This 148-nucleotide RNA from Nannospalax galili belongs to the Rfam family "U12 minor spliceosomal RNA". Rfam links the family to the GO terms mRNA branch site recognition, pre-mRNA branch point binding and U12 snRNP. On this family, see Tarn and Steitz, Trends Biochem Sci 1997: "Pre-mRNA splicing: the discovery of a new spliceosome doubles the challenge". It scores 62 bits against the family's covariance model. Pairs were carried over by alignment from the consensus structure.
[Rfam]
RNA sequence: AUGGUUUACUUCUGAGUAUGGAGAAUAACAAUUCAGGGCAAUGCUUGAAUCCUCGCUGCUAAUGUGAGAUGAAUUCUUGAGCAGGUAAAGUUUUUCCCUAAGAUCAACCACCUGCUUUGUUGGGAUGCCUGGGUUUGUGAUCUGCCUA
Number, nucleotide and partner (000 for none) at each position: 001a000002u000003g000004g000005u020006u000007u018008a017009c000010u000011u000012c000013u000014g000015a000016g000017u008018a007019u000020g005021g000022a000023g000024a000025a000026u000027a000028a000029c000030a000031a050032u049033u048034c047035a046036g045037g044038g000039c000040a000041a000042u000043g000044c037045u036046u035047g034048a033049a032050u031051c000052c068053u067054c066055g065056c064057u000058g000059c000060u000061a000062a000063u000064g056065u055066g054067a053068g052069a000070u000071g000072a000073a000074u000075u000076c000077u000078u000079g000080a000081g000082c000083a147084g146085g145086u144087a000088a000089a143090g142091u000092u140093u139094u000095u137096c000097c000098c132099u131100a000101a130102g129103a000104u127105c000106a000107a000108c123109c122110a120111c119112c000113u000114g000115c000116u000117u000118u000119g111120u110121u000122g109123g108124g000125a000126u000127g104128c000129c102130u101131g099132g098133g000134u000135u000136u000137g095138u000139g093140a092141u000142c090143u089144g086145c085146c084147u083148a000